Notes
serC leader: a 52-nucleotide RNA. This family is a putative regulatory RNA structure that is found upstream of the serC-serA operon in some alpha-proteobacteria. The final stem of the structure overlaps the ribosome binding site of the serC reading frame. The base pairs follow the family's consensus structure. For this family Rfam cites "Evidence for a second class of S-adenosylmethionine riboswitches and other regulatory RNA motifs in alpha-proteobacteria" (Corbino et al., Genome Biol, 2005).
RNA sequence: GAGCGGGACACCCCUCCCCAACGAGGGGCGCUUAUCUGGAAGGGUACUGUCG
Numbered sequence: 001g002a003g004c005g006g007g008a009c010a011c012c013c014c015u016c017c018c019c020a021a022c023g024a025g026g027g028g029c030g031c032u033u034a035u036c037u038g039g040a041a042g043g044g045u046a047c048u049g050u051c052g
Base pairs, nucleotide, nucleotide: 011028012027013026014025015024016023033046034045035044036043037042
Dot-bracket structure: ..........((((((......))))))....(((((....)))))......